[Rfam]
RNA: Small nucleolar RNA SNORD11B
RNA sequence: GCUAAGCAGUGAUGAUGCUGACGUUACGUCACUUUCCUGAAAACGACUGAUGGUUUUAAGUCACUACCUCAUCUGAGCUUGAA
Numbered sequence: 001g002c003u004a005a006g007c008a009g010u011g012a013u014g015a016u017g018c019u020g021a022c023g024u025u026a027c028g029u030c031a032c033u034u035u036c037c038u039g040a041a042a043a044c045g046a047c048u049g050a051u052g053g054u055u056u057u058a059a060g061u062c063a064c065u066a067c068c069u070c071a072u073c074u075g076a077g078c079u080u081g082a083a
Base pairs, nucleotide, nucleotide: 003081004080005079006078007077